[Rfam]
RNA sequence: GUUACGUUGCGGCUCGUCAACGGGCACUUGGCUUUAUUAAAAUGCUAGCUGCCUUUUGAAGGGCAACAUCGUAUC
Numbered sequence: 001g002u003u004a005c006g007u008u009g010c011g012g013c014u015c016g017u018c019a020a021c022g023g024g025c026a027c028u029u030g031g032c033u034u035u036a037u038u039a040a041a042a043u044g045c046u047a048g049c050u051g052c053c054u055u056u057u058g059a060a061g062g063g064c065a066a067c068a069u070c071g072u073a074u075c
Stems, first nucleotide, its partner, number of pairs: 004072003008068002012064004017059004023053002028048005
Source information:
Rfam assigns this 75-nucleotide RNA from Vespula pensylvanica to the family "mir-980 microRNA precursor family". NCBI's taxonomy places the organism under Eukaryota, Opisthokonta, Mandibulata, Allotriocarida, Vespula.